[Rfam]
Rfam assigns this 105-nucleotide RNA sequence to the family "cow-rumen-2 RNA".
The base pairs follow the family's consensus structure, which is taken from published work.
Rfam classes the family as a small RNA.

RNA sequence: AAUGACGGAAAACCUAGCAAGUUUUCCAUGUAGCCGCCAUGGCAUGUCAAGAUGUAGCCGGAGUACCGGAUGACCAUCCCGUAAGCUUGACAGUAAGCCCCGAGA
Numbered sequence: 001a002a003u004g005a006c007g008g009a010a011a012a013c014c015u016a017g018c019a020a021g022u023u024u025u026c027c028a029u030g031u032a033g034c035c036g037c038c039a040u041g042g043c044a045u046g047u048c049a050a051g052a053u054g055u056a057g058c059c060g061g062a063g064u065a066c067c068g069g070a071u072g073a074c075c076a077u078c079c080c081g082u083a084a085g086c087u088u089g090a091c092a093g094u095a096a097g098c099c100c101c102g103a104g105a
Base pairs, nucleotide, nucleotide: 002077007027008026009025010024011023012022013021040102041100042099043097045092046091047090048089049088050087051086059081060080061079064076068075069074